Selenocysteine insertion sequence 1: a 59-nucleotide RNA sequence from Astyanax mexicanus. A reference for the family is Walczak et al. (1996), "A novel RNA structural motif in the selenocysteine insertion element of eukaryotic selenoprotein mRNAs", RNA.

RNA sequence: UUUACUUAAUGAGGGCGAUGCCCUAAACCUUAAAGGGGCAUCAUCUGAGACGCUGUAAA
Numbered sequence: 001u002u003u004a005c006u007u008a009a010u011g012a013g014g015g016c017g018a019u020g021c022c023c024u025a026a027a028c029c030u031u032a033a034a035g036g037g038g039c040a041u042c043a044u045c046u047g048a049g050a051c052g053c054u055g056u057a058a059a
Stems, first nucleotide, its partner, number of pairs: 001059005014045002017042007028035001